[Rfam]
RNA sequence: ACUGGAAGCUGCUGGGACCAGUCAUGGGCAAAAUAAAUAAUUUUUUGUCCACUGUUGCAGUCUUCCUAGAGCAAAGUGGAGGUCUCUGUCUGCUUUAGGACAGCUGACUAAACCAGAUCGUUCCCCUCCAUACACA
Numbered sequence: 001a002c003u004g005g006a007a008g009c010u011g012c013u014g015g016g017a018c019c020a021g022u023c024a025u026g027g028g029c030a031a032a033a034u035a036a037a038u039a040a041u042u043u044u045u046u047g048u049c050c051a052c053u054g055u056u057g058c059a060g061u062c063u064u065c066c067u068a069g070a071g072c073a074a075a076g077u078g079g080a081g082g083u084c085u086c087u088g089u090c091u092g093c094u095u096u097a098g099g100a101c102a103g104c105u106g107a108c109u110a111a112a113c114c115a116g117a118u119c120g121u122u123c124c125c126c127u128c129c130a131u132a133c134a135c136a
Stems, first nucleotide, its partner, number of pairs: 004066003008061005025051005035043002078129005086120001088118003092114001094112005